[Rfam]
RNA sequence: GGACCCCGAUGUAACUGGCGACGAGUGGGAUCAACCACAGUGGAGCAUCGGGACAUACGGCCGGUCGCCUGGGCAAAGAGC
Number, nucleotide and partner (000 for none) at each position: 001g000002g000003a000004c000005c052006c051007c050008g049009a048010u047011g046012u045013a000014a000015c042016u000017g069018g068019c067020g066021a065022c000023g000024a000025g038026u037027g036028g035029g000030a000031u000032c000033a000034a000035c028036c027037a026038c025039a000040g000041u000042g015043g000044a000045g012046c011047a010048u009049c008050g007051g006052g005053a000054c000055a000056u000057a000058c000059g000060g074061c073062c072063g000064g000065u021066c020067g019068c018069c017070u000071g000072g062073g061074c060075a000076a000077a000078g000079a000080g000081c000

Shown here is an 81-nucleotide sequence from Paenibacillus mucilaginosus, a member of the family "ZMP/ZTP riboswitch aptamer (pfl RNA motif)". The match comes from Rfam's covariance-model search (55 bits). The base pairs follow the family's consensus structure, which is taken from published work. NCBI's taxonomy places the organism under Bacteria, Bacillati, Bacillota, Caryophanales, Paenibacillus mucilaginosus.